The record is a 181-nucleotide RNA, which matches "TUC338" in Rfam.
The sequence is in the family's curated seed alignment.
Rfam classes the family as a cis-regulatory element.
Pairs were carried over by alignment from the consensus structure, which was predicted with WAR.
On this family, see Braconi et al., Proc Natl Acad Sci U S A 2011: "Expression and functional role of a transcribed noncoding RNA with an ultraconserved element in hepatocellular carcinoma".
RNA sequence: UUGAUAGCACCAGAGACUGAAGUCCUCUAUUUUAUCCACAUGACAGGUACAGUAUAGGCAGUGGCAGUACAGGCUUCCCCACACUGCCCUGCCAAUGUGCCUCAACCCUGCCCUGGAGGGACCACCUCUACAGGGUGAGAGGGGUAGUUCAGUCUCCAUGCCCAUUCAAUCCUUGGCCUCU
Numbered sequence: 001u002u003g004a005u006a007g008c009a010c011c012a013g014a015g016a017c018u019g020a021a022g023u024c025c026u027c028u029a030u031u032u033u034a035u036c037c038a039c040a041u042g043a044c045a046g047g048u049a050c051a052g053u054a055u056a057g058g059c060a061g062u063g064g065c066a067g068u069a070c071a072g073g074c075u076u077c078c079c080c081a082c083a084c085u086g087c088c089c090u091g092c093c094a095a096u097g098u099g100c101c102u103c104a105a106c107c108c109u110g111c112c113c114u115g116g117a118g119g120g121a122c123c124a125c126c127u128c129u130a131c132a133g134g135g136u137g138a139g140a141g142g143g144g145u146a147g148u149u150c151a152g153u154c155u156c157c158a159u160g161c162c163c164a165u166u167c168a169a170u171c172c173u174u175g176g177c178c179u180c181u
Base pairs, nucleotide, nucleotide: 002168003167004166007162013156014155015154016153017152018151019150020149021148024144025143026142027141028140031139032138033137034136035135036134039110040109049102052100053099054098055097056096063088064087065086066085067084114130115129116128117127118126119125